Overview:
Rfam assigns this 305-nucleotide RNA from Xenopus tropicalis to the family "7SK RNA". The source organism's lineage runs through Eukaryota, Eumetazoa, Bilateria, Amphibia and Silurana. The base pairs follow the family's consensus structure, which is taken from published work.
RNA sequence: GGAUGUGAGAGAGAUCUGGCUGCGACAUCUGUCACCCCAUUGAUCGCUAGGGCUGAUCUGGCUGGCUAGGCUGAUGUCCCCUUCCUCCCUCACCACUCCAUGUGCGUCCCUCCCGAAGCUGUGCGCUCGGUCGAAGAGGAUGGCUGUCCCCGAUAGAGAAGCACCAAUCUCCAGUCAAGGGUAUAUGAGUAGCUGCGCUCCCCUGCUAGAACCUCCAAACAAGAUUCAAGUACGUAGGGUAGUCAAGCUCCAAGUCUUCAAGCACAUCCAAAUGUGGCACUGCAUGGGGCAGUCUGCCUUCCUUU
Numbered sequence: 001g002g003a004u005g006u007g008a009g010a011g012a013g014a015u016c017u018g019g020c021u022g023c024g025a026c027a028u029c030u031g032u033c034a035c036c037c038c039a040u041u042g043a044u045c046g047c048u049a050g051g052g053c054u055g056a057u058c059u060g061g062c063u064g065g066c067u068a069g070g071c072u073g074a075u076g077u078c079c080c081c082u083u084c085c086u087c088c089c090u091c092a093c094c095a096c097u098c099c100a101u102g103u104g105c106g107u108c109c110c111u112c113c114c115g116a117a118g119c120u121g122u123g124c125g126c127u128c129g130g131u132c133g134a135a136g137a138g139g140a141u142g143g144c145u146g147u148c149c150c151c152g153a154u155a156g157a158g159a160a161g162c163a164c165c166a167a168u169c170u171c172c173a174g175u176c177a178a179g180g181g182u183a184u185a186u187g188a189g190u191a192g193c194u195g196c197g198c199u200c201c202c203c204u205g206c207u208a209g210a211a212c213c214u215c216c217a218a219a220c221a222a223g224a225u226u227c228a229a230g231u232a233c234g235u236a237g238g239g240u241a242g243u244c245a246a247g248c249u250c251c252a253a254g255u256c257u258u259c260a261a262g263c264a265c266a267u268c269c270a271a272a273u274g275u276g277g278c279a280c281u282g283c284a285u286g287g288g289g290c291a292g293u294c295u296g297c298c299u300u301c302c303u304u305u
Base pairs, nucleotide, nucleotide: 001099002098003097005093006092007091008090009089011087013084014083018081019080024078025077026076027075028074029073031071032070033069035065036064037061038060039059042058043057044056045055046053047052108161110158111157112156113130114129115128116127118126119125131153132152133151138149139148140147192248193247194246198242199241201239202238203237204236205235206234213230214229219225270305271304272303274300276298277297278296279293280292281291282290283289
Clan: 7SK clan. On this family, see Blencowe, Curr Biol 2002: "Transcription: surprising role for an elusive small nuclear RNA". About the family: 7SK was discovered as an abundant small nuclear RNA in the mid-70s but a possible function has only recently been suggested. Two independent studies have found that 7SK RNA binds the CDK9/cyclin T complex (known as elongation factor P-TEFb).